[Rfam]
RNA: MIR827 microRNA precursor family
RNA sequence: ACUUGUUUUGUUGGUGGUCAUCUAACCAUGUGUGCAUGAUUAGUUCUUCGCACGACUGCUGGUGCAUGAUGGACCCAUGCAUGGUUAGAUGACCAUCAGCAAACAUGUU
Numbered sequence: 001a002c003u004u005g006u007u008u009u010g011u012u013g014g015u016g017g018u019c020a021u022c023u024a025a026c027c028a029u030g031u032g033u034g035c036a037u038g039a040u041u042a043g044u045u046c047u048u049c050g051c052a053c054g055a056c057u058g059c060u061g062g063u064g065c066a067u068g069a070u071g072g073a074c075c076c077a078u079g080c081a082u083g084g085u086u087a088g089a090u091g092a093c094c095a096u097c098a099g100c101a102a103a104c105a106u107g108u109u
Stems, first nucleotide, its partner, number of pairs: 005104004010100022